[Rfam]
Shown here is a 57-nucleotide RNA from Ziziphus spina-christi, a member of the family "Plastid-ndhJ 3UTR RNA".
Rfam classes the family as a cis-regulatory element.
Plastid ndhJ is a non-coding RNA (ncRNA) present in plastids. It was identified as a short stem-loop motif in the 3 prime untranslate region (3UTR) of ndhJ gene.
On this family, see Richter et al., Plant Commun 2023: "Retrograde signaling in plants: A critical review focusing on the GUN pathway and beyond".
Pairs were carried over by alignment from the consensus structure, which was predicted with LocARNA.
RNA sequence: UGCAGAACUAUGUACCGCGCACAUCACUUAGAUGGGUUCCAGAAAGUAACAACAUAG
Number, nucleotide and partner (000 for none) at each position: 001u000002g000003c000004a000005g000006a000007a000008c000009u000010a000011u000012g000013u000014a000015c000016c000017g000018c000019g037020c036021a000022c034023a033024u032025c031026a000027c000028u000029u000030a000031g025032a024033u023034g022035g000036g020037u019038u000039c000040c000041a000042g000043a000044a000045a000046g000047u000048a000049a000050c000051a000052a000053c000054a000055u000056a000057g000